[Rfam]
Shown here is a 130-nucleotide RNA from Colobus angolensis, a member of the family "Small Cajal body specific RNA 24".
The family is grouped with related families in Rfam's "SCARNA3 clan".
Rfam classes the family as a small Cajal body RNA.
scaRNAs are a specific class of small nuclear RNAs which localise to the Cajal bodies and guide the modification of RNA polymerase II transcribed spliceosomal RNAs U1, U2, U4, U5 and U12. ACA12 belongs to the H/ACA box class of guide RNAs as it has the predicted hairpin-hinge-hairpin-tail structure,the conserved H/ACA-box motifs and is found associated with GAR1.
A search with the family's covariance model found it, with a score of 136 bits.
RNA sequence: UGGACAUUUAUUUUUAUUCAGUUUCUUCUCAAGGUGAAGGUAACUGUUUGUAAAUGUCCUAAAGAAACAUGAUAGCUUUCUGUUCACCCUUUGCAAGAAAAAAGCGUGGAUCAUUUCACCGCUGACAUUU
Number, nucleotide and partner (000 for none) at each position: 001u000002g059003g058004a057005c056006a055007u054008u053009u052010a051011u050012u000013u000014u000015u000016a000017u000018u000019c000020a045021g044022u043023u042024u040025c039026u038027u037028c036029u000030c000031a000032a000033g000034g000035u000036g028037a027038a026039g025040g024041u000042a023043a022044c021045u020046g000047u000048u000049u000050g011051u010052a009053a008054a007055u006056g005057u004058c003059c002060u000061a000062a000063a000064g000065a000066a000067a000068c000069a000070u124071g123072a000073u121074a000075g119076c000077u000078u000079u000080c000081u000082g000083u000084u000085c000086a000087c000088c000089c104090u103091u102092u101093g000094c000095a000096a000097g000098a000099a000100a000101a092102a091103a090104g089105c000106g000107u000108g000109g000110a000111u000112c000113a000114u000115u000116u000117c000118a000119c075120c000121g073122c000123u071124g070125a000126c000127a000128u000129u000130u000